[Rfam]
The record is a 129-nucleotide RNA from Dickeya chrysanthemi, which matches "EFASI RNA" in Rfam.
RNA sequence: CUGGAUCGAUACCGAGGCAGGCAAUUUGCCUGGGGGUAUGACUGUGUGAACAGCGGUUGCACUGUGUGCAUCACCGAACCCCCGAUACCUCAACAAAACCCAAGCCCUCCGGCGCAUAGGUAUCGUUCA
Numbered sequence: 001c002u003g004g005a006u007c008g009a010u011a012c013c014g015a016g017g018c019a020g021g022c023a024a025u026u027u028g029c030c031u032g033g034g035g036g037u038a039u040g041a042c043u044g045u046g047u048g049a050a051c052a053g054c055g056g057u058u059g060c061a062c063u064g065u066g067u068g069c070a071u072c073a074c075c076g077a078a079c080c081c082c083c084g085a086u087a088c089c090u091c092a093a094c095a096a097a098a099c100c101c102a103a104g105c106c107c108u109c110c111g112g113c114g115c116a117u118a119g120g121u122a123u124c125g126u127u128c129a
Stems, first nucleotide, its partner, number of pairs: 002129004007125007018032006033082004054076004058070005